This 113-nucleotide RNA from Sphingomonas lutea belongs to the Rfam family "TPP riboswitch aptamer (THI element)".

[Rfam]
RNA sequence: AAGCCUUCCCUGGGGGGCCGCGCGGACUCGCGGCUGAGAGUCGGUGAAGCGCAUCGAGACCCAUCGAACCUGAUCCCGUUUGCACGGGCGUAGGAAGAGGAGUCUGACGAUGG
Dot-bracket structure: .....(((.(((((..(((((........)))))......(((((.......)))))..)))).....((((..((((......))))..))))..).)))............
The family's consensus secondary structure is taken from published work.
The source organism's lineage runs through Bacteria, Pseudomonadati, Pseudomonadota, Sphingomonadales and Sphingomonas.